Annotation
The family of this 114-nucleotide RNA from Zingiber officinale is "MIR168 microRNA precursor family". The family's consensus secondary structure was predicted with WAR. The literature on the family includes a 2002 paper in Genes Dev by Reinhart et al., "MicroRNAs in plants". Its family is annotated with RISC complex and miRNA-mediated post-transcriptional gene silencing in the Gene Ontology.

RNA sequence: CGCUCGGCCGCCUCUGGUUCGCUUGGUGCAGGUCGGGAACGCUCCAGUCUUGCAGCGCGGACUAACGAGCCCGAUCCCGCCUUGCACCAACUGAAUCGGAGACGGACUGCGACC
Numbered sequence: 001c002g003c004u005c006g007g008c009c010g011c012c013u014c015u016g017g018u019u020c021g022c023u024u025g026g027u028g029c030a031g032g033u034c035g036g037g038a039a040c041g042c043u044c045c046a047g048u049c050u051u052g053c054a055g056c057g058c059g060g061a062c063u064a065a066c067g068a069g070c071c072c073g074a075u076c077c078c079g080c081c082u083u084g085c086a087c088c089a090a091c092u093g094a095a096u097c098g099g100a101g102a103c104g105g106a107c108u109g110c111g112a113c114c
Base pairs, nucleotide, nucleotide: 013100014099017096018095019094020093023090024089025088026087027086028085029084030083031082032081034079035078036077037076038075040073041072